MIR4380 microRNA precursor family: a 76-nucleotide sequence from Glycine max. The family has 3 seed sequences and 8 matches in Rfam 15.1. The sequence is in the family's curated seed alignment. NCBI's taxonomy places the organism under Eukaryota, eudicotyledons, rosids, Phaseoleae, Glycine subgen. Soja.
[Rfam]
RNA sequence: GCGUACGGAUCAACAAUCCGUAUGAACCAUAUGGAUUGGCAAUCCGUAUGGUCAUACGGAUUGUUGAUCCGUACGU
Dot-bracket structure: (((((((((((((((((((((((((.(((((((((((...))))))))))))))))))))))))))))))))))))